[Rfam]
RNA sequence: AUAAAUCUUCAGGGCGGGGUGAGAGUCCCCACCGGCGGUAUAGCCCGCGAGCCUUAAGUGGUAUGAUUCGGUGUAAUUCCGAAGCCGACAGUAAAGUCUGGAUGAGAGAAGGUAAAG
Numbered sequence: 001a002u003a004a005a006u007c008u009u010c011a012g013g014g015c016g017g018g019g020u021g022a023g024a025g026u027c028c029c030c031a032c033c034g035g036c037g038g039u040a041u042a043g044c045c046c047g048c049g050a051g052c053c054u055u056a057a058g059u060g061g062u063a064u065g066a067u068u069c070g071g072u073g074u075a076a077u078u079c080c081g082a083a084g085c086c087g088a089c090a091g092u093a094a095a096g097u098c099u100g101g102a103u104g105a106g107a108g109a110a111g112g113u114a115a116a117g
Base pairs, nucleotide, nucleotide: 005113006112007111008110009109010108017029018028019027031097032096033087034086035048036047037046038045043085044084053061067083068082069081070080071079089100090099091098
The family of this 117-nucleotide RNA sequence from Clostridium magnum is "FMN riboswitch aptamer (RFN element)". A reference for the family is Vitreschak et al. (2002), "Regulation of riboflavin biosynthesis and transport genes in bacteria by transcriptional and translational attenuation", Nucleic Acids Res. The organism belongs to Clostridium magnum, within Bacteria.